[Rfam]
RNA: Small nucleolar RNA SNORD11
RNA sequence: GUGAUCAGUGAUGAUGAUUCUCUCUAAUUGCCUGAUAAACUAUGAAGGCAAUUUUAGUCACUACCUCAUCUGAGAUCAC
Numbered sequence: 001g002u003g004a005u006c007a008g009u010g011a012u013g014a015u016g017a018u019u020c021u022c023u024c025u026a027a028u029u030g031c032c033u034g035a036u037a038a039a040c041u042a043u044g045a046a047g048g049c050a051a052u053u054u055u056a057g058u059c060a061c062u063a064c065c066u067c068a069u070c071u072g073a074g075a076u077c078a079c
Stems, first nucleotide, its partner, number of pairs: 001079004